[Rfam]
RNA: HNH endonuclease-associated RNA and ORF (HEARO) RNA
Organism: Lactobacillus delbrueckii
RNA sequence: GUCAAUGGUAACACCUUACUGAAGUAAGAGACCUGAAGCGCAAGCUUCAGGUCUCUUAUCUUUAGCAGGGAAGCUGGGGAAAUCCAGCUUUCAUUGUCUAGACUAAGCAAUCCAGUCGGCUUCGGCCAACAGGAUUGCUACGUUAUCCAUGUAUCACACCCAAGGAUGAUGCCCAAGUCUUUGGCUCUGUGGCAGCUCUAUAAACAGUCAUGAGGUUAACGUGACAGUCAACUGCGUUGGCAAGCAUGGAUAACAUUGUCGAUGGGCAUCAAC
Numbered sequence: 001g002u003c004a005a006u007g008g009u010a011a012c013a014c015c016u017u018a019c020u021g022a023a024g025u026a027a028g029a030g031a032c033c034u035g036a037a038g039c040g041c042a043a044g045c046u047u048c049a050g051g052u053c054u055c056u057u058a059u060c061u062u063u064a065g066c067a068g069g070g071a072a073g074c075u076g077g078g079g080a081a082a083u084c085c086a087g088c089u090u091u092c093a094u095u096g097u098c099u100a101g102a103c104u105a106a107g108c109a110a111u112c113c114a115g116u117c118g119g120c121u122u123c124g125g126c127c128a129a130c131a132g133g134a135u136u137g138c139u140a141c142g143u144u145a146u147c148c149a150u151g152u153a154u155c156a157c158a159c160c161c162a163a164g165g166a167u168g169a170u171g172c173c174c175a176a177g178u179c180u181u182u183g184g185c186u187c188u189g190u191g192g193c194a195g196c197u198c199u200a201u202a203a204a205c206a207g208u209c210a211u212g213a214g215g216u217u218a219a220c221g222u223g224a225c226a227g228u229c230a231a232c233u234g235c236g237u238u239g240g241c242a243a244g245c246a247u248g249g250a251u252a253a254c255a256u257u258g259u260c261g262a263u264g265g266g267c268a269u270c271a272a273c
Stems, first nucleotide, its partner, number of pairs: 001098001003096006014030001015028005032051008101260003105256001106139008142254011156190002160184008169269007192235004199230001204228002207225006